[Rfam]
RNA sequence: UACUCCUGUGCCUACUGAACUGGAUUCAGUGUGAACAUGAAACUGGCUCAGUCCAGCAGGAACAGGAG
Numbered sequence: 001u002a003c004u005c006c007u008g009u010g011c012c013u014a015c016u017g018a019a020c021u022g023g024a025u026u027c028a029g030u031g032u033g034a035a036c037a038u039g040a041a042a043c044u045g046g047c048u049c050a051g052u053c054c055a056g057c058a059g060g061a062a063c064a065g066g067a068g
Stems, first nucleotide, its partner, number of pairs: 003068004008063002011060003015056003019052005026046005